[Rfam]
RNA sequence: AAUGCAGAAAUUUUUUGUAUCGACUAUGUGCUAUUAAUAAUGCACUUUGCUCGAAAGUGUUCUCUGCUAAAUUGAUAUCACUGAGAAAGAUGGGCAGUUGUUUUUCAUUUAUUUCACUGAAAAUUUUCAACAAUCAUUUUCCCCCAUCU
Number, nucleotide and partner (000 for none) at each position: 001a000002a000003u000004g067005c066006a065007g064008a063009a000010a061011u000012u000013u000014u000015u000016u044017g043018u042019a041020u040021c000022g000023a000024c000025u000026a000027u000028g000029u000030g000031c000032u000033a000034u000035u000036a000037a000038u000039a000040a020041u019042g018043c017044a016045c000046u000047u000048u000049g000050c000051u000052c000053g000054a000055a000056a000057g000058u000059g000060u000061u010062c000063u008064c007065u006066g005067c004068u000069a000070a000071a000072u000073u000074g000075a000076u000077a000078u000079c000080a000081c000082u000083g144084a000085g142086a000087a140088a139089g138090a137091u136092g135093g134094g000095c000096a000097g131098u130099u129100g128101u000102u000103u000104u000105u000106c000107a000108u000109u000110u000111a000112u000113u000114u000115c000116a000117c000118u000119g000120a000121a000122a000123a000124u000125u000126u000127u000128c100129a099130a098131c097132a000133a000134u093135c092136a091137u090138u089139u088140u087141c000142c085143c000144c083145c000146a000147u000148c000149u000